Source information: Fluoride riboswitch aptamer (crcB RNA motif): a 59-nucleotide sequence from Lactobacillus acidophilus. NCBI's taxonomy places the organism under Bacteria, Bacillati, Bacillota, Bacilli, Lactobacillus acidophilus. The family has 289 seed sequences and 2,293 matches in Rfam 15.1. The family's consensus secondary structure is taken from published work. It scores 47 bits against the family's covariance model.
RNA sequence: AAGUAAAAAGGUGAUGACGUUCACCGUUAAUCGAGAAAUCUAAUGACGUCUACUUUAUC
Number, nucleotide and partner (000 for none) at each position: 001a000002a000003g000004u000005a000006a000007a000008a000009a000010g025011g024012u023013g022014a000015u000016g050017a049018c048019g047020u046021u045022c013023a012024c011025c010026g000027u000028u000029a000030a000031u000032c000033g040034a039035g000036a000037a000038a000039u034040c033041u000042a000043a000044u000045g021046a020047c019048g018049u017050c016051u000052a000053c000054u000055u000056u000057a000058u000059c000